[Rfam]
RNA sequence: CGCGUUUUUCGCCCAGGCGGAGCUCGACCGCCGCUUCGAAUCGUGAGGGCCUUCAUCGACGAACACCGGGAACGUCUCGGGGUCGAGCCGAUCUGCAAAGCCUUGCAGGUUGCCCCG
Numbered sequence: 001c002g003c004g005u006u007u008u009u010c011g012c013c014c015a016g017g018c019g020g021a022g023c024u025c026g027a028c029c030g031c032c033g034c035u036u037c038g039a040a041u042c043g044u045g046a047g048g049g050c051c052u053u054c055a056u057c058g059a060c061g062a063a064c065a066c067c068g069g070g071a072a073c074g075u076c077u078c079g080g081g082g083u084c085g086a087g088c089c090g091a092u093c094u095g096c097a098a099a100g101c102c103u104u105g106c107a108g109g110u111u112g113c114c115c116c117g
Stems, first nucleotide, its partner, number of pairs: 016032005078117005089112002092109007
ALIL pseudoknot: a 117-nucleotide sequence from Rhodocyclus tenuis. Rfam classes the family as a cis-regulatory element. The organism belongs to Rhodocyclus, within Bacteria.